RAGATH-18 RNA: a 67-nucleotide RNA sequence from Bacillus bingmayongensis. Pairs were carried over by alignment from the consensus structure, which is taken from published work.
[Rfam]
RNA sequence: CUUGUGGAGUGCUAUAUCAAAUUGUGGUAGCGAAUAAGUGGCGAAGCGAGGCACAUAGAAGCAAGAA
Numbered sequence: 001c002u003u004g005u006g007g008a009g010u011g012c013u014a015u016a017u018c019a020a021a022u023u024g025u026g027g028u029a030g031c032g033a034a035u036a037a038g039u040g041g042c043g044a045a046g047c048g049a050g051g052c053a054c055a056u057a058g059a060a061g062c063a064a065g066a067a
Base pairs, nucleotide, nucleotide: 001065002064003063004062005061009054010053011052012051013050022049023048024047030042031041
Actinobacteria, Firmicutes, Fusobacteria, Thermotogae (1 example). Taxonomically the source falls in Bacillus (Bacteria, Bacillati, Bacillota, Bacillaceae).